[Rfam]
RNA: Small nucleolar RNA Z199
Organism: Corchorus capsularis
RNA sequence: AGAUCAAACGAUGAGAAAAAAAACUGCAACAAAAUGAUCGAUUAAUAUCGUGAUUACUUGUAUUUAAGUCUCUGAUGAUU
Numbered sequence: 001a002g003a004u005c006a007a008a009c010g011a012u013g014a015g016a017a018a019a020a021a022a023a024c025u026g027c028a029a030c031a032a033a034a035u036g037a038u039c040g041a042u043u044a045a046u047a048u049c050g051u052g053a054u055u056a057c058u059u060g061u062a063u064u065u066a067a068g069u070c071u072c073u074g075a076u077g078a079u080u
Stems, first nucleotide, its partner, number of pairs: 001080002004078003040049003